[Rfam]
Rfam assigns this 84-nucleotide RNA from Trichechus manatus to the family "mir-500 microRNA precursor family". The match comes from Rfam's covariance-model search (79 bits). Pairs were carried over by alignment from the consensus structure, which was predicted with RNAalifold. Rfam links the family to the GO terms RISC complex and miRNA-mediated post-transcriptional gene silencing.
RNA sequence: GCUCCCCCUCUCUAAUCCUUGGAACCUAGGUGUGAGUGCUGUUUCAAUGCAACACACCUAUUCAAGGAUUCAAAGAGGCUGAGC
Dot-bracket structure: .............(((((((......((((((....(((.........)))...))))))...)))))))..............